The record is a 64-nucleotide RNA sequence from Nematostella vectensis, which matches "mir-9412 microRNA precursor family" in Rfam. Lineage of the source: Eukaryota > Opisthokonta > Metazoa > Edwardsiidae > Nematostella. The family's consensus secondary structure was predicted with RNAalifold.
RNA sequence: CAAGAAUGCUAAAGACUGGAAGACAUGAGAAUUAUAAACCAUGUCUUGAAGAUAACAGUAGGGA
Numbered sequence: 001c002a003a004g005a006a007u008g009c010u011a012a013a014g015a016c017u018g019g020a021a022g023a024c025a026u027g028a029g030a031a032u033u034a035u036a037a038a039c040c041a042u043g044u045c046u047u048g049a050a051g052a053u054a055a056c057a058g059u060a061g062g063g064a
Stems, first nucleotide, its partner, number of pairs: 007060004016051002020047008